This 80-nucleotide RNA sequence from Danionella cerebrum belongs to the Rfam family "mir-219 microRNA precursor family".

[Rfam]
RNA sequence: CCAGAAAUUGAUUGUCCAAACGCAAUUCUUGUAAAAAUAUAAUUGAAAUCCAAGAAUUGUGCCUGGACAUCUGUUGCUGG
Numbered sequence: 001c002c003a004g005a006a007a008u009u010g011a012u013u014g015u016c017c018a019a020a021c022g023c024a025a026u027u028c029u030u031g032u033a034a035a036a037a038u039a040u041a042a043u044u045g046a047a048a049u050c051c052a053a054g055a056a057u058u059g060u061g062c063c064u065g066g067a068c069a070u071c072u073g074u075u076g077c078u079g080g
Base pairs, nucleotide, nucleotide: 002079003078004077006075007074010071011070012069014068015067016066017065018064021061022060023059024058025057026056027055028054029053030052031051
The family has 92 seed sequences and 1,318 matches in Rfam 15.1. Rfam links the family to the GO terms RISC complex and miRNA-mediated post-transcriptional gene silencing. The match comes from Rfam's covariance-model search (76 bits). Taxonomically the source falls in Danionella (Eukaryota, Bilateria, Chordata, Cyprinoidei).